RNA: transfer-messenger RNA
RNA sequence: GGGGCCGAAAGGUUUUGACAACAUGGGUUCUUUGAAAGUGUAAGCAUGCCGUGCGUUGGAUCAUUAGCACGUUAAUCUGAAGAUCCGAAAAGUAAAUGGCGACUAUUCUUACGCCAUGGCUGCCUGAUCAGCGAUCAGGACGCCAUUAUGGCCGGGUAUGUUGACAGACCUGUGGUCGACUGCCCCGCCGAAUCAUCCGAUCCGCACAGGUUGCGGCAACAGUGCGCUGCGGCUGUUGCUUAAGACAAGCAGCUCAGGGAAACCAUCGGUUUGUCCGGCUCCAGUGGUUUCCUGAACUCUAAUGCCGGAAUAAGCAUGUAGAAAGCUUUCAGGGAACAUGGAUGGACGCGGGUUCGAUUCCCGCCGGCUCCACCA
Numbered sequence: 001g002g003g004g005c006c007g008a009a010a011g012g013u014u015u016u017g018a019c020a021a022c023a024u025g026g027g028u029u030c031u032u033u034g035a036a037a038g039u040g041u042a043a044g045c046a047u048g049c050c051g052u053g054c055g056u057u058g059g060a061u062c063a064u065u066a067g068c069a070c071g072u073u074a075a076u077c078u079g080a081a082g083a084u085c086c087g088a089a090a091a092g093u094a095a096a097u098g099g100c101g102a103c104u105a106u107u108c109u110u111a112c113g114c115c116a117u118g119g120c121u122g123c124c125u126g127a128u129c130a131g132c133g134a135u136c137a138g139g140a141c142g143c144c145a146u147u148a149u150g151g152c153c154g155g156g157u158a159u160g161u162u163g164a165c166a167g168a169c170c171u172g173u174g175g176u177c178g179a180c181u182g183c184c185c186c187g188c189c190g191a192a193u194c195a196u197c198c199g200a201u202c203c204g205c206a207c208a209g210g211u212u213g214c215g216g217c218a219a220c221a222g223u224g225c226g227c228u229g230c231g232g233c234u235g236u237u238g239c240u241u242a243a244g245a246c247a248a249g250c251a252g253c254u255c256a257g258g259g260a261a262a263c264c265a266u267c268g269g270u271u272u273g274u275c276c277g278g279c280u281c282c283a284g285u286g287g288u289u290u291c292c293u294g295a296a297c298u299c300u301a302a303u304g305c306c307g308g309a310a311u312a313a314g315c316a317u318g319u320a321g322a323a324a325g326c327u328u329u330c331a332g333g334g335a336a337c338a339u340g341g342a343u344g345g346a347c348g349c350g351g352g353u354u355c356g357a358u359u360c361c362c363g364c365c366g367g368c369u370c371c372a373c374c375a
Stems, first nucleotide, its partner, number of pairs: 001371007019344002022341001026337001028335001033333001037329002040326002045318005050071005057087006115139001117137003121133003147192001149190004154185004160180004168211007216239007226254001228252001257293010268282002274309006348364005